Shown here is a 440-nucleotide part of an RNA from Mesoplasma syrphidae, a member of the family "Bacterial large subunit ribosomal RNA". The base pairs follow the family's consensus structure, which is taken from published work. Lineage of the source: Bacteria > Bacillati > Mycoplasmatota > Mollicutes > Mesoplasma.

RNA sequence: CUCCCCGAUAUAUCUUUAAGGAUAGCGUCGUAAUUAAAACAUUGGAGGUAGAGCACUGAAUCUAUGAUGGCUGCACCUAGCGGUACUGAAUAGAAUUAAACUCCGAAUGCCAAUGUCCAAUUGUACGGCAGUCAGAACAUGGGUGAUAAGGUCCAUGCUCGUGAGGGAAACAGCCCAGAUCGUCAGCUAAGGUCCCCAAAUGUAUACUAAGUGUGUAAGGAUGUGAAAUUGCACAGACAGCUAGGAUGUUGGCUCAGAAGCAGCCAUCAUUUAAAGAGUGCGUAACAGCUCACUAGUCGAGUGAUUUUGCGCCGAAAAUGUACCGGGGCUUAAGUAUACUACCGAAGCUACGGAUUGUACGUAAGUACAGUGGUAGGGGAGCGUUCUAAGGGCGAUGAAGUUGGACCGUGAGGACCAGUGGAGCGCUUAGAAGUGAUUAU
Numbered sequence: 001c002u003c004c005c006c007g008a009u010a011u012a013u014c015u016u017u018a019a020g021g022a023u024a025g026c027g028u029c030g031u032a033a034u035u036a037a038a039a040c041a042u043u044g045g046a047g048g049u050a051g052a053g054c055a056c057u058g059a060a061u062c063u064a065u066g067a068u069g070g071c072u073g074c075a076c077c078u079a080g081c082g083g084u085a086c087u088g089a090a091u092a093g094a095a096u097u098a099a100a101c102u103c104c105g106a107a108u109g110c111c112a113a114u115g116u117c118c119a120a121u122u123g124u125a126c127g128g129c130a131g132u133c134a135g136a137a138c139a140u141g142g143g144u145g146a147u148a149a150g151g152u153c154c155a156u157g158c159u160c161g162u163g164a165g166g167g168a169a170a171c172a173g174c175c176c177a178g179a180u181c182g183u184c185a186g187c188u189a190a191g192g193u194c195c196c197c198a199a200a201u202g203u204a205u206a207c208u209a210a211g212u213g214u215g216u217a218a219g220g221a222u223g224u225g226a227a228a229u230u231g232c233a234c235a236g237a238c239a240g241c242u243a244g245g246a247u248g249u250u251g252g253c254u255c256a257g258a259a260g261c262a263g264c265c266a267u268c269a270u271u272u273a274a275a276g277a278g279u280g281c282g283u284a285a286c287a288g289c290u291c292a293c294u295a296g297u298c299g300a301g302u303g304a305u306u307u308u309g310c311g312c313c314g315a316a317a318a319u320g321u322a323c324c325g326g327g328g329c330u331u332a333a334g335u336a337u338a339c340u341a342c343c344g345a346a347g348c349u350a351c352g353g354a355u356u357g358u359a360c361g362u363a364a365g366u367a368c369a370g371u372g373g374u375a376g377g378g379g380a381g382c383g384u385u386c387u388a389a390g391g392g393c394g395a396u397g398a399a400g401u402u403g404g405a406c407c408g409u410g411a412g413g414a415c416c417a418g419u420g421g422a423g424c425g426c427u428u429a430g431a432a433g434u435g436a437u438u439a440u
Base pairs, nucleotide, nucleotide: 001381002380003379004378005377006376011024012023013022014021015020026131027129028128029127030126031125032124036122039116040115041114042113043112044111045110051104052102053101057098058097059096061094062093063092064091069086070084071083072082073081074080135160136159138157139156140155141154142153143152144151165176166175167174180353181352182351183350185349186348187347191343192342193341200340202339203338204337205336206335207334219313220312223310224309225308226307227306228305229304230303231302232301240297241296242295243294244293246270247269248268251265252264253263271275276291280289281288354371355370356369357368358367359366360365382435384432385431386430387429388428389427390426392424393423400419401418402417403416404415406413407412